[Rfam]
The record is an 83-nucleotide RNA sequence from Miscanthus lutarioriparius, which matches "Small nucleolar RNA U54" in Rfam. The match comes from Rfam's covariance-model search (66 bits). NCBI's taxonomy places the organism under Eukaryota, Poales, Poaceae, Andropogonodae, Miscanthus. About the family: U54 is a C/D box small nucleolar RNA, which acts as a methylation guide for 18S ribosomal RNA in plants. The literature on the family includes a 2003 paper in Nucleic Acids Res by Chen et al., "The high diversity of snoRNAs in plants: identification and comparative study of 120 snoRNA genes from Oryza sativa".
RNA sequence: UGCUCAAUGAUUCUACCAUGGUAAAUCAUGGUAAUAUACGCUAUUCUGAGCCACACAAGGAUGCCAUAAGCUUUCUGAGAGCA
Number, nucleotide and partner (000 for none) at each position: 001u083002g082003c081004u080005c079006a000007a000008u000009g000010a000011u000012u000013c000014u000015a000016c000017c000018a000019u000020g000021g000022u000023a000024a000025a000026u000027c000028a000029u000030g000031g000032u000033a000034a000035u000036a000037u000038a000039c000040g000041c000042u000043a000044u000045u000046c000047u000048g000049a000050g000051c000052c000053a000054c000055a000056c000057a000058a000059g000060g000061a000062u000063g000064c000065c000066a000067u000068a000069a000070g000071c000072u000073u000074u000075c000076u000077g000078a000079g005080a004081g003082c002083a001